[Rfam]
RNA: Small nucleolar RNA SNORD105
RNA sequence: CCCCCAUCUCUUGUGAUGAACCCGUUUGCCUCUGAACUGUCAUGAUUUUGGCUUCAAAGUAAACGCUCUGAAGAAGAGUUGGGA
Numbered sequence: 001c002c003c004c005c006a007u008c009u010c011u012u013g014u015g016a017u018g019a020a021c022c023c024g025u026u027u028g029c030c031u032c033u034g035a036a037c038u039g040u041c042a043u044g045a046u047u048u049u050g051g052c053u054u055c056a057a058a059g060u061a062a063a064c065g066c067u068c069u070g071a072a073g074a075a076g077a078g079u080u081g082g083g084a
Stems, first nucleotide, its partner, number of pairs: 003083003008078003